[Rfam]
About this RNA
A member of the RNA family "mir-729 microRNA precursor family" from Sinocyclocheilus rhinocerous, 85 nucleotides long. Rfam links the family to the GO terms miRNA-mediated post-transcriptional gene silencing and RISC complex.
RNA sequence: GCCAUCCAUUGACCCGGGGUUGUAUUGUAACCAAGCUAUGCAUCUGAGUUGCAUGGGUAUGAUACGACCUGGGUUACAGGAAGGU
Numbered sequence: 001g002c003c004a005u006c007c008a009u010u011g012a013c014c015c016g017g018g019g020u021u022g023u024a025u026u027g028u029a030a031c032c033a034a035g036c037u038a039u040g041c042a043u044c045u046g047a048g049u050u051g052c053a054u055g056g057g058u059a060u061g062a063u064a065c066g067a068c069c070u071g072g073g074u075u076a077c078a079g080g081a082a083g084g085u
Base pairs, nucleotide, nucleotide: 001085002084003083005081006080007079012075014073015072017070018069019068020067021066022065023064024063025062026061027060028059029058031056032055033054035052036051037048039046
Dot-bracket structure: (((.(((....(.((.(((((((((((((.(((.(((.(......).)..)).))).))))))))))))).)).)...))).)))